[Rfam]
RNA sequence: AAAAAGGGCGCGUCACGGGUUGCAAACCCAAUGUGACAAGAGAAUCUAUUGCUCUUGCGGUAUGGCAAUCAAGACAUAUCGCGCGCAUAAUUUUUUGCUAUUAGGCGGCGUACUUGUACACUUUCAGGUGUGCAUUGCUCGCUC
Numbered sequence: 001a002a003a004a005a006g007g008g009c010g011c012g013u014c015a016c017g018g019g020u021u022g023c024a025a026a027c028c029c030a031a032u033g034u035g036a037c038a039a040g041a042g043a044a045u046c047u048a049u050u051g052c053u054c055u056u057g058c059g060g061u062a063u064g065g066c067a068a069u070c071a072a073g074a075c076a077u078a079u080c081g082c083g084c085g086c087a088u089a090a091u092u093u094u095u096u097g098c099u100a101u102u103a104g105g106c107g108g109c110g111u112a113c114u115u116g117u118a119c120a121c122u123u124u125c126a127g128g129u130g131u132g133c134a135u136u137g138c139u140c141g142c143u144c
Stems, first nucleotide, its partner, number of pairs: 008086005013036005037057006044050001058081007105142004110138003114134001116133007